[Rfam]
RNA sequence: AAAUCAUGAUGAGGGCAAGUAUUAAUCAAGUCUUGAUACCUAUCCCAACAUUGGUAAAAUGUUUCACCUGGUUUUCGACUGAAAGUGGUGAUUUGUCUUUUGAAAGA
Numbered sequence: 001a002a003a004u005c006a007u008g009a010u011g012a013g014g015g016c017a018a019g020u021a022u023u024a025a026u027c028a029a030g031u032c033u034u035g036a037u038a039c040c041u042a043u044c045c046c047a048a049c050a051u052u053g054g055u056a057a058a059a060u061g062u063u064u065c066a067c068c069u070g071g072u073u074u075u076c077g078a079c080u081g082a083a084a085g086u087g088g089u090g091a092u093u094u095g096u097c098u099u100u101u102g103a104a105a106g107a
Stems, first nucleotide, its partner, number of pairs: 004104001005102002057074002060071001

A member of the RNA family "Plant small nucleolar RNA R71" from Populus alba, 107 nucleotides long. Taxonomically the source falls in Populus (Eukaryota, Viridiplantae, Embryophyta, Mesangiospermae). Pairs were carried over by alignment from the consensus structure, which was predicted with PFOLD. Rfam classes the family as a C/D-box small nucleolar RNA. The literature on the family includes a 2003 paper in Trends Plant Sci by Brown et al., "Plant snoRNAs: functional evolution and new modes of gene expression".